[Rfam]
Notes: The family of this 116-nucleotide sequence from Bacillus thuringiensis is "skipping-rope RNA". Taxonomically the source falls in Bacillus thuringiensis serovar monterrey (Bacteria, Bacillati, Bacillota, Bacilli). The sequence is in the family's curated seed alignment.
RNA sequence: GAUCUAUGAGGUGGGAAAGGUUCCCCACGCGCUUAUCUAACCACUGUUCGCGAUCAAUCAUUUGAAUGGUUAGGUAAGUUACCAGAGAUGUAGGAUACGCCGCCCUACCAUCGAUC
Numbered sequence: 001g002a003u004c005u006a007u008g009a010g011g012u013g014g015g016a017a018a019g020g021u022u023c024c025c026c027a028c029g030c031g032c033u034u035a036u037c038u039a040a041c042c043a044c045u046g047u048u049c050g051c052g053a054u055c056a057a058u059c060a061u062u063u064g065a066a067u068g069g070u071u072a073g074g075u076a077a078g079u080u081a082c083c084a085g086a087g088a089u090g091u092a093g094g095a096u097a098c099g100c101c102g103c104c105c106u107a108c109c110a111u112c113g114a115u116c
Base pairs, nucleotide, nucleotide: 001116002115003114004113006111007110008109011028012027013026014025015024019101020100021099030085031079032078033077034076035075036074037073038072039071040070041069042068043067090108091107092106093105094104
Dot-bracket structure: ((((.(((..(((((...[[[..))))).((((((((((((((.......................))))))))))))).....)....(((((....]]]..)))))))).))))